[Rfam]
RNA sequence: UUUGUUACACAAGCGCCAGAGCUUGGUCUUGCGCGGGAGAAAAGGGAAAGCCAAUGAUUGCCUGUCAAGGCUAGGCUGAACCGGAUCACGGCAGAUGUAAGCUGACGAGGUGGAGGUGUUCGAAAUGUUCGGCGGGGACCUCCCGGUGAUGCACCAGAGCCGUAAACGAAAGCGGAAAAUGGAAGGGCGACCUUUCACACAACGCUCUCGUGGGUGCAGCA
Numbered sequence: 001u002u003u004g005u006u007a008c009a010c011a012a013g014c015g016c017c018a019g020a021g022c023u024u025g026g027u028c029u030u031g032c033g034c035g036g037g038a039g040a041a042a043a044g045g046g047a048a049a050g051c052c053a054a055u056g057a058u059u060g061c062c063u064g065u066c067a068a069g070g071c072u073a074g075g076c077u078g079a080a081c082c083g084g085a086u087c088a089c090g091g092c093a094g095a096u097g098u099a100a101g102c103u104g105a106c107g108a109g110g111u112g113g114a115g116g117u118g119u120u121c122g123a124a125a126u127g128u129u130c131g132g133c134g135g136g137g138a139c140c141u142c143c144c145g146g147u148g149a150u151g152c153a154c155c156a157g158a159g160c161c162g163u164a165a166a167c168g169a170a171a172g173c174g175g176a177a178a179a180u181g182g183a184a185g186g187g188c189g190a191c192c193u194u195u196c197a198c199a200c201a202a203c204g205c206u207c208u209c210g211u212g213g214g215u216g217c218a219g220c221a
Base pairs, nucleotide, nucleotide: 020103021102022101023100024099025098029094030093031092032091112143113142114141115140116139120132121131122130123129144162145161146160147159148155166211167210168209169208171206172205180197181196182195183194184193185192186191

Shown here is a 221-nucleotide sequence from Paenibacillus wynnii, a member of the family "glmS glucosamine-6-phosphate activated ribozyme aptamer". The family's RNA type in Rfam is riboswitch. Taxonomically the source falls in Paenibacillus (Bacteria, Bacilli, Caryophanales, Paenibacillaceae).